Rfam assigns this 139-nucleotide sequence from Paenibacillus xerothermodurans to the family "c-di-AMP riboswitch aptamer (ydaO/yuaA leader)".
[Rfam]
RNA sequence: AACCAACAUUUGCCGAAUUUCCAGUCAUAUGGAAAACGGGGGAUCCGAUUUUGGGUGAAUUGAUCUCGCUUCAGAGUGAUCAUAGGGAACCUUCAACCGAACCCUUAAGCUAACCUCGUAGGCGCGGAAGGGGACACUU
Numbered sequence: 001a002a003c004c005a006a007c008a009u010u011u012g013c014c015g016a017a018u019u020u021c022c023a024g025u026c027a028u029a030u031g032g033a034a035a036a037c038g039g040g041g042g043a044u045c046c047g048a049u050u051u052u053g054g055g056u057g058a059a060u061u062g063a064u065c066u067c068g069c070u071u072c073a074g075a076g077u078g079a080u081c082a083u084a085g086g087g088a089a090c091c092u093u094c095a096a097c098c099g100a101a102c103c104c105u106u107a108a109g110c111u112a113a114c115c116u117c118g119u120a121g122g123c124g125c126g127g128a129a130g131g132g133g134a135c136a137c138u139u
Base pairs, nucleotide, nucleotide: 011124012123013122014121018035019034020033021032022031023030036119037118038117039116040115041114047051053104054103055102061082062081063080064079085098086097
Dot-bracket structure: ..........((((...((((((......))))))((((((.....(...).(((.....((((..............))))..((..........))...))).........)))))).))))...............

The match comes from Rfam's covariance-model search (68 bits). The source organism's lineage runs through Bacteria, Bacillati, Bacillota, Caryophanales and Paenibacillus. The family has 106 seed sequences and 7,607 matches in Rfam 15.1.